[Rfam]
RNA sequence: GACUGACAUUAUGAAGGCCUGUACUGAAGACAGCAAGCUGUUAGUACAGACCAGAUGCUUUCUUGGCAGGC
Numbered sequence: 001g002a003c004u005g006a007c008a009u010u011a012u013g014a015a016g017g018c019c020u021g022u023a024c025u026g027a028a029g030a031c032a033g034c035a036a037g038c039u040g041u042u043a044g045u046a047c048a049g050a051c052c053a054g055a056u057g058c059u060u061u062c063u064u065g066g067c068a069g070g071c
Base pairs, nucleotide, nucleotide: 001071003069004068005067016052017051019049020048021047022046023045024044025043031040032039033038
Dot-bracket structure: (.(((..........((.(((((((.....(((....)))..))))))).))..............))).)

The record is a 71-nucleotide RNA, which matches "Selenocysteine insertion sequence 1" in Rfam. The incorporation of selenocysteine into a protein sequence is directed by an in-frame UGA codon (usually a stop codon) within the coding region of the mRNA. Selenoprotein mRNAs contain a conserved secondary structure in the 3' UTR that is required for the distinction of UGA stop from UGA selenocysteine. The family's RNA type in Rfam is cis-regulatory element. Rfam 15.1 lists 3,793 matches to the family in 721 species. The sequence is in the family's curated seed alignment.